[Rfam]
RNA sequence: GGUCGCUUAGCUCAGUUGGUUAGAGCGUGGUGCUAAUAUCGGCAGUCCUCCCAGCGGGCUUAAAGAGUUAACGCCAAGGUCGCGAGUUCGACCCUCGUAGUGACCA
Dot-bracket structure: (((((((..((((.........)))).(((((.......................................))))).....(((((.......)))))))))))).
The record is a 106-nucleotide sequence from Diplodia seriata, which matches "tRNA" in Rfam.
It is annotated as a transfer RNA.
NCBI's taxonomy places the organism under Eukaryota, Opisthokonta, saccharomyceta, Botryosphaeriaceae, Diplodia.
Pairs were carried over by alignment from the consensus structure, which is taken from published work.